[Rfam]
RNA sequence: UUGCAUCCACUGAUAGACCUGAAGCAUGCAUCUUUGGCUUCUGGGUUUGCAUAGAGAUGCUAAACUAAAGUUUUCCUCGCGCUUUCUGACUGCUGAAUUCUAUAGCAAGACAGAUUGAAUUGAGGAAUACAUGC
Numbered sequence: 001u002u003g004c005a006u007c008c009a010c011u012g013a014u015a016g017a018c019c020u021g022a023a024g025c026a027u028g029c030a031u032c033u034u035u036g037g038c039u040u041c042u043g044g045g046u047u048u049g050c051a052u053a054g055a056g057a058u059g060c061u062a063a064a065c066u067a068a069a070g071u072u073u074u075c076c077u078c079g080c081g082c083u084u085u086c087u088g089a090c091u092g093c094u095g096a097a098u099u100c101u102a103u104a105g106c107a108a109g110a111c112a113g114a115u116u117g118a119a120u121u122g123a124g125g126a127a128u129a130c131a132u133g134c
Base pairs, nucleotide, nucleotide: 003060004059005058006057007056011051012050014049015048016047017046018045019044022040023039024038025037028034074126075125076124077123078122079121082117085114086113087112088111091107092106093105094104
A member of the RNA family "Small nucleolar RNA SNORA31" from Larimichthys crocea, 134 nucleotides long. About the family: ACA31 (SNORA31) belongs to the H/ACA class of snoRNAs which are thought to guide the sites of modification of uridines to pseudouridines. Pairs were carried over by alignment from the consensus structure, which was predicted with RNAalifold. A reference for the family is Huttenhofer et al. (2001), "RNomics: an experimental approach that identifies 201 candidates for novel, small, non-messenger RNAs in mouse", EMBO J. Its family is annotated with nucleolus and RNA processing in the Gene Ontology.